[Rfam]
RNA: Potassium channel RNA editing signal
Organism: Albula glossodonta
RNA sequence: GUGGGCUAUGGGGACAUGUACCCGGAGACGGUUUCGGGGAAGCUGGUUGGAUCAAUGUGUGCCAUUGCCGGUGUGCUGACCAUCUCGCUGCCUGUUCCUGUAAUCGUUUCCAAU
Numbered sequence: 001g002u003g004g005g006c007u008a009u010g011g012g013g014a015c016a017u018g019u020a021c022c023c024g025g026a027g028a029c030g031g032u033u034u035c036g037g038g039g040a041a042g043c044u045g046g047u048u049g050g051a052u053c054a055a056u057g058u059g060u061g062c063c064a065u066u067g068c069c070g071g072u073g074u075g076c077u078g079a080c081c082a083u084c085u086c087g088c089u090g091c092c093u094g095u096u097c098c099u100g101u102a103a104u105c106g107u108u109u110c111c112a113a114u
Stems, first nucleotide, its partner, number of pairs: 001114002004111002008107004014101003018097001020095002037077002040074001049063002